Notes: The family of this 101-nucleotide RNA sequence is "RT-5 RNA". It is one of the family's seed sequences. The family's RNA type in Rfam is small RNA. Pairs were carried over by alignment from the consensus structure, which is taken from published work.

RNA sequence: UGGCACCUACGGCGGGCAAAGCACGACUUGAUUCAUUGGUUGUGUAGGUAACAAAGUUGUGUACGGUCUGGUAUGCUUACUAAGCAUUUUAAAGCUUUUCC
Numbered sequence: 001u002g003g004c005a006c007c008u009a010c011g012g013c014g015g016g017c018a019a020a021g022c023a024c025g026a027c028u029u030g031a032u033u034c035a036u037u038g039g040u041u042g043u044g045u046a047g048g049u050a051a052c053a054a055a056g057u058u059g060u061g062u063a064c065g066g067u068c069u070g071g072u073a074u075g076c077u078u079a080c081u082a083a084g085c086a087u088u089u090u091a092a093a094g095c096u097u098u099u100c101c
Stems, first nucleotide, its partner, number of pairs: 005049007013070003017066001021062008037053001039052003073087006